[Rfam]
RNA sequence: GCCCUGCUGGCGCAAUGGUAGCGCGCUGAACUUCUAGUCUUCACCAUGAUUGGUGGACCGAAUCUCUUGGCAUGUCAAGAGAAGAAGGCAAUUCAGAGGCUGCGGGUUCGACCCCCGCGUGGGGCU
Dot-bracket structure: (((((((..((((.......)))).(((((.............................................................))))).....(((((.......)))))))))))).
Numbered sequence: 001g002c003c004c005u006g007c008u009g010g011c012g013c014a015a016u017g018g019u020a021g022c023g024c025g026c027u028g029a030a031c032u033u034c035u036a037g038u039c040u041u042c043a044c045c046a047u048g049a050u051u052g053g054u055g056g057a058c059c060g061a062a063u064c065u066c067u068u069g070g071c072a073u074g075u076c077a078a079g080a081g082a083a084g085a086a087g088g089c090a091a092u093u094c095a096g097a098g099g100c101u102g103c104g105g106g107u108u109c110g111a112c113c114c115c116c117g118c119g120u121g122g123g124g125c126u
Stems, first nucleotide, its partner, number of pairs: 001125007010024004026096005102118005

The family of this 126-nucleotide RNA from Penicillium cataractarum is "tRNA".
Gene Ontology term of the family: triplet codon-amino acid adaptor activity.
A search with the family's covariance model found it, with a score of 49 bits.